The record is a 331-nucleotide sequence from Fervidobacterium nodosum, which matches "Bacterial RNase P class A" in Rfam. The source organism's lineage runs through Bacteria, Thermotogota, Thermotogae, Fervidobacteriaceae and Fervidobacterium nodosum.
[Rfam]
RNA sequence: CAAGAGGGGCGAGCAAGCGCAGGCAGCCGCACAAGGCUGUCCUGAGGAAAGUCCGGACUCCGUGGGCAGGAUGCUAGCUAACGGCUAGGUGGCGUGAGCCACGGAUAGGGCCAUAGAAACGGAAACCGCCUGAAAGGUUAUUCCGAGUAAGGCAAGGGUGGAAAGGUGAGGUAAGAGCUCACCAGCAGUGCAGUAAUGCACUGGCUUGGCAACCCACAUCCGGAGCAAGGUCAAACAGGGGGUUGGGCGGCCCCACUCUAAAUCCCCCGGGUAGACCGCUUAGACAGAUGCUUGCUCAAGACAGAAUCCGGCUUACAGCCCCUCUUGAGCU
Dot-bracket structure: ((((((((((((((((((.(((((((((......))))).))))....[[[.[[[[[((((..[.[..((((((((((.....)))))(((((....))))).(...(((((.............((((((.(..............).))))..)).......((((((.......)))))).((((((((....))))))).)..)))..))).)))))))))...((((......((((.......(...].].)......)))).....))))............)))))))..........]]]]]]]].).))))))))))....